mir-998 microRNA precursor family: an 84-nucleotide sequence from Plutella xylostella. The match comes from Rfam's covariance-model search (56 bits). The family's consensus secondary structure was predicted with RNAalifold.

RNA sequence: GCCGGCGAGCCGCGAGCUGUAUCCCGCGUGGCUGCAGUGCCCACUCGUGUAGCACCAUGGGAUUCAGCUCACGACCGCGCCGGC
Number, nucleotide and partner (000 for none) at each position: 001g000002c000003c082004g081005g080006c079007g078008a000009g076010c000011c073012g072013c000014g070015a069016g000017c067018u066019g065020u000021a000022u062023c061024c060025c059026g058027c000028g056029u000030g000031g000032c052033u051034g050035c049036a048037g000038u000039g000040c000041c000042c000043a000044c000045u000046c000047g000048u036049g035050u034051a033052g032053c000054a000055c000056c028057a000058u026059g025060g024061g023062a022063u000064u000065c019066a018067g017068c000069u015070c014071a000072c012073g011074a000075c000076c009077g000078c007079g006080c005081c004082g003083g000084c000